The family of this 314-nucleotide RNA from Flavobacterium soyangense is "Bacterial RNase P class A". A search with the family's covariance model found it, with a score of 184 bits.

RNA sequence: ACUGCAGACCGCCUUAUCGCCGCGAUUAUAUCGGGGAGGAAAGUCCGGACACCACAGAGAAGCAUAGCGGGUAACGCCCGUCGGUUCCGAUUUAUCAGGAUUAGGACAAGUGCAACAGAAAGUAUGUACAGGUAAUGCUGUAGUGAAACCAGGUAAACUCUAUGCGGUGAAAUUUCAAGUAUAUCGGCAUUUAAGGGUUCUCGCCCGUUGUCGAAGGGUAGAAAGAUGGAGCACAUGAGCAAUUGCGUGCCUAGAUAAAUGAUAAGGCUCCGAUUUAUCGGGGACAGAAUCCGGCUUACAGGUCUGCUUUUUUA
Numbered sequence: 001a002c003u004g005c006a007g008a009c010c011g012c013c014u015u016a017u018c019g020c021c022g023c024g025a026u027u028a029u030a031u032c033g034g035g036g037a038g039g040a041a042a043g044u045c046c047g048g049a050c051a052c053c054a055c056a057g058a059g060a061a062g063c064a065u066a067g068c069g070g071g072u073a074a075c076g077c078c079c080g081u082c083g084g085u086u087c088c089g090a091u092u093u094a095u096c097a098g099g100a101u102u103a104g105g106a107c108a109a110g111u112g113c114a115a116c117a118g119a120a121a122g123u124a125u126g127u128a129c130a131g132g133u134a135a136u137g138c139u140g141u142a143g144u145g146a147a148a149c150c151a152g153g154u155a156a157a158c159u160c161u162a163u164g165c166g167g168u169g170a171a172a173u174u175u176c177a178a179g180u181a182u183a184u185c186g187g188c189a190u191u192u193a194a195g196g197g198u199u200c201u202c203g204c205c206c207g208u209u210g211u212c213g214a215a216g217g218g219u220a221g222a223a224a225g226a227u228g229g230a231g232c233a234c235a236u237g238a239g240c241a242a243u244u245g246c247g248u249g250c251c252u253a254g255a256u257a258a259a260u261g262a263u264a265a266g267g268c269u270c271c272g273a274u275u276u277a278u279c280g281g282g283g284a285c286a287g288a289a290u291c292c293g294g295c296u297u298a299c300a301g302g303u304c305u306g307c308u309u310u311u312u313u314a
Stems, first nucleotide, its partner, number of pairs: 001310001004307007011299001012267007020036002023033004041297003045294005050169004057202004062165005067081005082104001083102004105160002110158002112154002127142005173224004184214005194208001196206002231250004236245003